A member of the RNA family "RNA Staph. aureus E (RoxS)" from Fervidibacillus halotolerans, 120 nucleotides long. Rfam describes the family as follows. It was shown to be regulated by the presence of nitric oxide (NO). In Bacillus subtilis it controls expression of genes with functions related to oxidative stress and oxidation-reduction reactions and it was renamed RoxS (for related to oxidative stress). Its family is annotated with regulation of translational initiation in the Gene Ontology. It is annotated as a small RNA.

RNA sequence: GUGAAGAAAUUCACAAGCAAACAUAUACCCCUUUGUUUGACCGUGAAAAUUUCUCCCAUCCCCUUUGUUCGUAACAAGAAAGGAAAGUCCAGUAGACCACCCAUCUACUGGACUUUCUUU
Numbered sequence: 001g002u003g004a005a006g007a008a009a010u011u012c013a014c015a016a017g018c019a020a021a022c023a024u025a026u027a028c029c030c031c032u033u034u035g036u037u038u039g040a041c042c043g044u045g046a047a048a049a050u051u052u053c054u055c056c057c058a059u060c061c062c063c064u065u066u067g068u069u070c071g072u073a074a075c076a077a078g079a080a081a082g083g084a085a086a087g088u089c090c091a092g093u094a095g096a097c098c099a100c101c102c103a104u105c106u107a108c109u110g111g112a113c114u115u116u117c118u119u120u
Base pairs, nucleotide, nucleotide: 003053004052005051007050011046012045013044014043018039019038020037021036022035023034069079083117084116085115086114087113088112089111090110091109092108093107094106095105096104